[Rfam]
Nucleotides: 118
Base pairs, nucleotide, nucleotide: 005019006018007017008016009015020058021057023055024054025053026052028051029050030049031048038044081105082104083103084102086100087099088098089097091095
Number, partner (000 for none) and nucleotide at each position: 001000u002000u003000u004000a005019u006018c007017c008016u009015u010000g011000u012000c013000u014000u015009g016008g017007g018006g019005a020058g021057c022000u023055g024054a025053g026052u027000c028051u029050g030049u031048c032000c033000a034000u035000g036000a037000u038044c039000g040000u041000c042000u043000a044038g045000u046000g047000a048031g049030a050029c051028a052026a053025c054024u055023c056000u057021g058020c059000u060000g061000a062000a063000g064000c065000c066000a067000a068000g069000u070000a071000a072000a073000a074000u075000a076000u077000a078000c079000c080000c081105g082104c083103a084102c085000c086100c087099g088098c089097u090000u091095a092000c093000a094000a095091u096000u097089a098088g099087c100086g101000a102084g103083u104082g105081c106000a107000a108000u109000u110000u111000u112000u113000g114000g115000a116000a117000g118000a